Rfam assigns this 85-nucleotide RNA sequence from Leptobrachium leishanense to the family "Small nucleolar RNA MBII-202".
For this family Rfam cites "RNomics: an experimental approach that identifies 201 candidates for novel, small, non-messenger RNAs in mouse" (Huttenhofer et al., EMBO J, 2001).
A search with the family's covariance model found it, with a score of 62 bits.
The family's consensus secondary structure was predicted with PFOLD.
The organism belongs to Leptobrachium, within Eukaryota.
Gene Ontology terms of the family: RNA processing and nucleolus.

RNA sequence: AUGACAAAGUCUCCGGAAUCGCUGUAUUUUACGUGAUGAUACCCGUUUUGAACCCUUUUCUGUCUGAUGACUGUAGAUACUGUGA
Numbered sequence: 001a002u003g004a005c006a007a008a009g010u011c012u013c014c015g016g017a018a019u020c021g022c023u024g025u026a027u028u029u030u031a032c033g034u035g036a037u038g039a040u041a042c043c044c045g046u047u048u049u050g051a052a053c054c055c056u057u058u059u060c061u062g063u064c065u066g067a068u069g070a071c072u073g074u075a076g077a078u079a080c081u082g083u084g085a
Base pairs, nucleotide, nucleotide: 002085004083005082006081